The family of this 52-nucleotide RNA sequence from Chlorocebus sabaeus is "mir-1302 microRNA precursor family". The family has 24 seed sequences and 16,160 matches in Rfam 15.1. Taxonomically the source falls in Chlorocebus (Eukaryota, Bilateria, Sarcopterygii, Eutheria). For this family Rfam cites "Application of massively parallel sequencing to microRNA profiling and discovery in human embryonic stem cells" (Morin et al., Genome Res, 2008). The base pairs follow the family's consensus structure, which was predicted with WAR. Rfam links the family to the GO terms miRNA-mediated post-transcriptional gene silencing and RISC complex. A search with the family's covariance model found it, with a score of 65 bits.

RNA sequence: UUUUUAGUAUAAAUACGUCUCAUGCAAUGUUUGGGAUAUGCUUAUACUAAAA
Number, nucleotide and partner (000 for none) at each position: 001u000002u000003u000004u000005u000006a048007g047008u046009a045010u044011a043012a042013a000014u040015a039016c000017g000018u036019c035020u034021c033022a031023u000024g000025c000026a000027a000028u000029g000030u000031u022032u000033g021034g020035g019036a018037u000038a000039u015040g014041c000042u012043u011044a010045u009046a008047c007048u006049a000050a000051a000052a000